[Rfam]
RNA sequence: UGCUUAUCCAGAGAGGUGGAGGGACUGGCCCUAUGAAGCCCGGCAACCGGUUUAUACACGGUGCUAAUUCCAGCAGGGCAUGUGCUCUGCAGAGAUAAGGA
Numbered sequence: 001u002g003c004u005u006a007u008c009c010a011g012a013g014a015g016g017u018g019g020a021g022g023g024a025c026u027g028g029c030c031c032u033a034u035g036a037a038g039c040c041c042g043g044c045a046a047c048c049g050g051u052u053u054a055u056a057c058a059c060g061g062u063g064c065u066a067a068u069u070c071c072a073g074c075a076g077g078g079c080a081u082g083u084g085c086u087c088u089g090c091a092g093a094g095a096u097a098a099g100g101a
Stems, first nucleotide, its partner, number of pairs: 001101001003099006013041001015040003021031003025073004042065004047061002049057001069093001074089006
Rfam assigns this 101-nucleotide sequence from Bacillus sp. FJAT-18017 to the family "SAM riboswitch aptamer (S box leader)". Gene Ontology term of the family: regulation of gene expression. Pairs were carried over by alignment from the consensus structure, which is taken from published work.